[Rfam]
Nucleotides: 137
Base pairs, nucleotide, nucleotide: 001060002059003058004057005054006053007052008051015048017046018045019044020043022041023040024039025037026036072130073129074128075127076126077125083120084119088115090111091110092109094107095106
Number, partner (000 for none) and nucleotide at each position: 001060g002059c003058a004057u005054g006053g007052u008051a009000g010000u011000g012000g013000a014000u015048u016000u017046a018045u019044g020043g021000u022041g023040g024039g025037c026036c027000c028000u029000u030000g031000u032000g033000u034000g035000u036026g037025g038000g039024c040023c041022u042000c043020u044019c045018a046017u047000c048015g049000u050000g051008u052007a053006c054005c055000c056000c057004a058003u059002g060001c061000c062000a063000g064000g065000g066000u067000a068000a069000c070000g071000g072130u073129g074128g075127c076126c077125u078000c079000u080000a081000a082000c083120c084119a085000u086000u087000g088115c089000c090111c091110a092109g093000c094107u095106u096000c097000a098000c099000u100000g101000c102000c103000u104000g105000u106095g107094g108000a109092c110091u111090g112000u113000g114000a115088g116000c117000a118000c119084u120083g121000a122000a123000g124000a125077a126076g127075g128074u129073u130072g131000c132000a133000c134000a135000g136000c137000u
The record is a 137-nucleotide RNA from Chinchilla lanigera, which matches "Small nucleolar RNA SNORA42/SNORA80 family" in Rfam. Taxonomically the source falls in Chinchilla (Eukaryota, Eumetazoa, Deuterostomia, Chordata). Rfam links the family to the GO terms nucleolus and RNA processing. On this family, see Schattner et al., RNA 2006: "A computational screen for mammalian pseudouridylation guide H/ACA RNAs". The members of this family belong to the H/ACA class of snoRNAs that guide the sites of modification of uridines to pseudouridines. Human ACA42 (SNORA42) was cloned from HeLa cells by immunoprecipitation with anti-GAR1 antibody. Pairs were carried over by alignment from the consensus structure, which was predicted with RNAalifold.